[Rfam]
RNA sequence: GGGUCUAUGAUGAAAAACCAAUGUCACACAGAGAGGUGAUGACAUAAAAAUCAUUCUAAAGGAUAGGGAAGAAAUAGGGGCCU
Number, nucleotide and partner (000 for none) at each position: 001g083002g082003g081004u080005c077006u076007a000008u074009g000010a000011u000012g000013a000014a000015a000016a000017a000018c000019c000020a000021a000022u000023g000024u000025c000026a000027c000028a000029c000030a000031g000032a000033g000034a000035g000036g000037u000038g000039a000040u000041g000042a000043c000044a000045u000046a000047a000048a000049a000050a000051u000052c000053a000054u000055u000056c000057u000058a000059a000060a000061g000062g000063a000064u000065a000066g000067g000068g000069a000070a000071g000072a000073a000074a008075u000076a006077g005078g000079g000080g004081c003082c002083u001
RNA: Small nucleolar RNA SNORD115
Organism: Mesocricetus auratus